Shown here is a 52-nucleotide RNA sequence from Sedimentitalea arenosa, a member of the family "ffh sRNA". On this family, see Meyer et al., BMC Genomics 2009: "Identification of candidate structured RNAs in the marine organism 'Candidatus Pelagibacter ubique'". Taxonomically the source falls in Sedimentitalea (Bacteria, Pseudomonadota, Alphaproteobacteria, Paracoccaceae).

[Rfam]
Nucleotides: 052
Base pairs, nucleotide, nucleotide: 016044017043018042019041020040021039022038025035026034027033028032
Number, partner (000 for none) and nucleotide at each position: 001000c002000c003000g004000a005000a006000u007000g008000g009000g010000g011000a012000u013000c014000g015000c016044c017043c018042u019041c020040c021039g022038u023000c024000a025035g026034c027033g028032c029000g030000u031000u032028g033027c034026g035025c036000c037000c038022a039021c040020g041019g042018g043017g044016g045000c046000a047000a048000a049000g050000c051000c052000g